[Rfam]
RNA: U1 spliceosomal RNA
Organism: Anseranas semipalmata
RNA sequence: AUAUUUAAUGAGCAGGGCAGACACCAUGAUCAGGCAGGUGGUUUUCCCUGGGCAAGGCUCAUCCCCUGCACUCCAGGUGCGCUGAGCUCUGCAAUUUCCCCAAAUUUGGGAAACACAACUGCAUCAUUUAUGGUAGUAGGGGGCUGCAUUCAAACUCUUCCCUG
Numbered sequence: 001a002u003a004u005u006u007a008a009u010g011a012g013c014a015g016g017g018c019a020g021a022c023a024c025c026a027u028g029a030u031c032a033g034g035c036a037g038g039u040g041g042u043u044u045u046c047c048c049u050g051g052g053c054a055a056g057g058c059u060c061a062u063c064c065c066c067u068g069c070a071c072u073c074c075a076g077g078u079g080c081g082c083u084g085a086g087c088u089c090u091g092c093a094a095u096u097u098c099c100c101c102a103a104a105u106u107u108g109g110g111a112a113a114c115a116c117a118a119c120u121g122c123a124u125c126a127u128u129u130a131u132g133g134u135a136g137u138a139g140g141g142g143g144c145u146g147c148a149u150u151c152a153a154a155c156u157c158u159u160c161c162c163u164g
Stems, first nucleotide, its partner, number of pairs: 012122004016048002019045003023042005050089003056083003060079004095113003099109002138163006146155001